RNA sequence: CAAUCUCCUGGGCAAACCCGUCGAAAGGCGGGGACGCAAAGCCUCCGGCCUACAGCGCAUGGCGCAAUGGUAGCGGGGUUGCCGAU
Numbered sequence: 001c002a003a004u005c006u007c008c009u010g011g012g013c014a015a016a017c018c019c020g021u022c023g024a025a026a027g028g029c030g031g032g033g034a035c036g037c038a039a040a041g042c043c044u045c046c047g048g049c050c051u052a053c054a055g056c057g058c059a060u061g062g063c064g065c066a067a068u069g070g071u072a073g074c075g076g077g078g079u080u081g082c083c084g085a086u
Stems, first nucleotide, its partner, number of pairs: 012037002017032006040080004045076003048071003055065004
Shown here is an 86-nucleotide RNA from Sapientia aquatica, a member of the family "c-di-GMP-I riboswitch aptamer". A search with the family's covariance model found it, with a score of 82 bits.